[Rfam]
RNA sequence: CAUGAUACUUCUGCCGUGGCGGCAGGCCUGAAAGACGGCAACAUGCAUCACCCUGAUUUGAGAAAGAAUCGGGGGCGGCUGUU
Number, nucleotide and partner (000 for none) at each position: 001c000002a000003u000004g000005a000006u000007a000008c000009u000010u000011c025012u024013g023014c022015c021016g000017u000018g000019g000020c000021g015022g014023c013024a012025g011026g039027c038028c037029u000030g000031a000032a000033a000034g000035a000036c000037g028038g027039c026040a083041a082042c081043a080044u000045g079046c078047a000048u000049c000050a000051c000052c000053c072054u071055g070056a069057u068058u000059u000060g000061a000062g000063a000064a000065a000066g000067a000068a057069u056070c055071g054072g053073g000074g000075g000076c000077g000078g046079c045080u043081g042082u041083u040
Rfam assigns this 83-nucleotide RNA sequence from Cellulosilyticum lentocellum to the family "dinG RNA". Lineage of the source: Bacteria > Bacillati > Clostridia > Cellulosilyticaceae > Cellulosilyticum lentocellum. Rfam's curators put it in the seed alignment. The family's consensus secondary structure is taken from published work.